[Rfam]
RNA: MIR7486 microRNA precursor family
RNA sequence: CACGUAAGCGCGCUUUACUGACAUGGCAACAAAUCGCAUCCUCUGAAGCGCGAUUUGUGUCCACGUCAGCAAAGCGCACUGACGUGG
Numbered sequence: 001c002a003c004g005u006a007a008g009c010g011c012g013c014u015u016u017a018c019u020g021a022c023a024u025g026g027c028a029a030c031a032a033a034u035c036g037c038a039u040c041c042u043c044u045g046a047a048g049c050g051c052g053a054u055u056u057g058u059g060u061c062c063a064c065g066u067c068a069g070c071a072a073a074g075c076g077c078a079c080u081g082a083c084g085u086g087g
Stems, first nucleotide, its partner, number of pairs: 001086005007080002010077007018069004024063003029058009